RNA sequence: CACACGCAUCCGACUCAUUCACGGCAGGAGCGGGGGACCCAGGUAAGUCGCCGCGCCGGUCACCGGACGUCACCCGACGUCACCGGAGGACCGGAGCGGCUCGGGGUGAAGCCGGGCCCGACAGGGCACGGCCGGGCACCUCCCCGCCCGAACCCGACAGCUCACCUCGCAGGCGUAUGGAGAGGACCG
Numbered sequence: 001c002a003c004a005c006g007c008a009u010c011c012g013a014c015u016c017a018u019u020c021a022c023g024g025c026a027g028g029a030g031c032g033g034g035g036g037a038c039c040c041a042g043g044u045a046a047g048u049c050g051c052c053g054c055g056c057c058g059g060u061c062a063c064c065g066g067a068c069g070u071c072a073c074c075c076g077a078c079g080u081c082a083c084c085g086g087a088g089g090a091c092c093g094g095a096g097c098g099g100c101u102c103g104g105g106g107u108g109a110a111g112c113c114g115g116g117c118c119c120g121a122c123a124g125g126g127c128a129c130g131g132c133c134g135g136g137c138a139c140c141u142c143c144c145c146g147c148c149c150g151a152a153c154c155c156g157a158c159a160g161c162u163c164a165c166c167u168c169g170c171a172g173g174c175g176u177a178u179g180g181a182g183a184g185g186a187c188c189g
Base pairs, nucleotide, nucleotide: 005175006174010173011172015029016028030170031169032168033167034166035165040103104155105154106153112131113130114129134149135148136147137146